The record is a 75-nucleotide sequence from Haemonchus placei, which matches "mir-5928 microRNA precursor family" in Rfam. Gene Ontology terms of the family: miRNA-mediated post-transcriptional gene silencing and RISC complex.

[Rfam]
Nucleotides: 075
Stems, first nucleotide, its partner, number of pairs: 001074003005070005011064007019056003023052001025050006034041002
Number, partner (000 for none) and nucleotide at each position: 001074g002073g003072u004000c005070c006069a007068a008067a009066u010000u011064u012063g013062a014061a015060g016059u017058g018000g019056a020055g021054u022000a023052g024000a025050u026049u027048g028047g029046u030045a031000g032000u033000a034041u035040c036000a037000g038000c039000u040035g041034a042000c043000c044000c045030u046029a047028c048027u049026a050025a051000u052023c053000c054021a055020c056019u057000g058017u059016g060015u061014u062013u063012c064011a065000a066009a067008u068007u069006u070005g071000a072003g073002u074001c075000c

NCBI's taxonomy places the organism under Eukaryota, Opisthokonta, Metazoa, Rhabditomorpha, Haemonchus.